[Rfam]
RNA: Small nucleolar RNA snR191
RNA sequence: CCCCAAUGUUUCCUGUCAGGAUUCCCUCCAUACUUCACCAAGAGGGCAAUCUGUUACAACGUUGGGAGAUUAAACGCCAUUCUCAACCACUUGGCGUUUUGCCGGUGGUAGUUGACACCGUUCUGGUGACCAACACGAGUCAGGCAUUGUAUCGAUAGAGUUGAACCCAACUAUGCCCAUAUUGGGCAUUGAUUUUGGACUUCUUAGUGAUGAUACAUACAUUC
Numbered sequence: 001c002c003c004c005a006a007u008g009u010u011u012c013c014u015g016u017c018a019g020g021a022u023u024c025c026c027u028c029c030a031u032a033c034u035u036c037a038c039c040a041a042g043a044g045g046g047c048a049a050u051c052u053g054u055u056a057c058a059a060c061g062u063u064g065g066g067a068g069a070u071u072a073a074a075c076g077c078c079a080u081u082c083u084c085a086a087c088c089a090c091u092u093g094g095c096g097u098u099u100u101g102c103c104g105g106u107g108g109u110a111g112u113u114g115a116c117a118c119c120g121u122u123c124u125g126g127u128g129a130c131c132a133a134c135a136c137g138a139g140u141c142a143g144g145c146a147u148u149g150u151a152u153c154g155a156u157a158g159a160g161u162u163g164a165a166c167c168c169a170a171c172u173a174u175g176c177c178c179a180u181a182u183u184g185g186g187c188a189u190u191g192a193u194u195u196u197g198g199a200c201u202u203c204u205u206a207g208u209g210a211u212g213a214u215a216c217a218u219a220c221a222u223u224c
Stems, first nucleotide, its partner, number of pairs: 003065005019052005024046005076145003081142001084111001086109006093103003114130001116128005148217003152213003163203003167198004173189006